[Rfam]
RNA: mir-30 microRNA precursor family
RNA sequence: UCAGUUCAUGUAAACAUCCUACACUCAGCUGUGAUACAUACCAAUGGCUGGGAGGUGGGUGUUUACCUCAGCUGA
Numbered sequence: 001u002c003a004g005u006u007c008a009u010g011u012a013a014a015c016a017u018c019c020u021a022c023a024c025u026c027a028g029c030u031g032u033g034a035u036a037c038a039u040a041c042c043a044a045u046g047g048c049u050g051g052g053a054g055g056u057g058g059g060u061g062u063u064u065a066c067c068u069c070a071g072c073u074g075a
Stems, first nucleotide, its partner, number of pairs: 002074005008068001010066010022054001024052007